[Rfam]
RNA sequence: AGAUGUCUUCAGGGCAGGGUGAGAAUCCCGAUCGGCGGUAAAGUCCGCGAGCGCUCCGCGCAGACCCGGUGUGAUUCCGGGACCGACAGUGACGUACCGAAUAACGGUGCGAAGUCUGGAUGGAAGAAGAUGUGU
Numbered sequence: 001a002g003a004u005g006u007c008u009u010c011a012g013g014g015c016a017g018g019g020u021g022a023g024a025a026u027c028c029c030g031a032u033c034g035g036c037g038g039u040a041a042a043g044u045c046c047g048c049g050a051g052c053g054c055u056c057c058g059c060g061c062a063g064a065c066c067c068g069g070u071g072u073g074a075u076u077c078c079g080g081g082a083c084c085g086a087c088a089g090u091g092a093c094g095u096a097c098c099g100a101a102u103a104a105c106g107g108u109g110c111g112a113a114g115u116c117u118g119g120a121u122g123g124a125a126g127a128a129g130a131u132g133u134g135u
Stems, first nucleotide, its partner, number of pairs: 003133008017029003033085002035048004043083002051061003065081005087118003
Shown here is a 135-nucleotide RNA from Flavonifractor sp. An135, a member of the family "FMN riboswitch aptamer (RFN element)".
From the family's description: The RFN element is a highly conserved domain that is found frequently in the 5'-untranslated regions of prokaryotic mRNAs that encode for flavin mononucleotide (FMN) biosynthesis and transport proteins.
The family's consensus secondary structure is taken from published work.